[Rfam]
RNA: Gag/pol translational readthrough site
Organism: Catagonus wagneri
RNA sequence: UAGGGAGGACGGGGUUUGGAUCCCCUCCCCAAACCCAGGGUAACCCUGAAAGUGGAGGGGAA
Numbered sequence: 001u002a003g004g005g006a007g008g009a010c011g012g013g014g015u016u017u018g019g020a021u022c023c024c025c026u027c028c029c030c031a032a033a034c035c036c037a038g039g040g041u042a043a044c045c046c047u048g049a050a051a052g053u054g055g056a057g058g059g060g061a062a
Base pairs, nucleotide, nucleotide: 008041010039012036013035014034015033016031018029019028022060023059024058025057026056027055